[Rfam]
RNA sequence: AACCCCUCGUGCGGCGAUAUCUCGCCCAACUCCCCCAGGGCCGGAAGGCAGCAAGGGUAAGCGGGCUCUGUCGGGUGCGCGAGGGGCCUUU
Dot-bracket structure: ((..((((((((..(((((.(((((......(((.....(((....))).....)))...)))))...))))).)..))))))..)..)).
A member of the RNA family "Bacterial small signal recognition particle RNA" from Nocardioides caeni, 91 nucleotides long. The literature on the family includes a 2002 paper in Nucleic Acids Res by Regalia et al., "Prediction of signal recognition particle RNA genes". The organism belongs to Nocardioides, within Bacteria. Its family is annotated with SRP-dependent cotranslational protein targeting to membrane, signal sequence recognition and signal recognition particle, plasma membrane targeting in the Gene Ontology.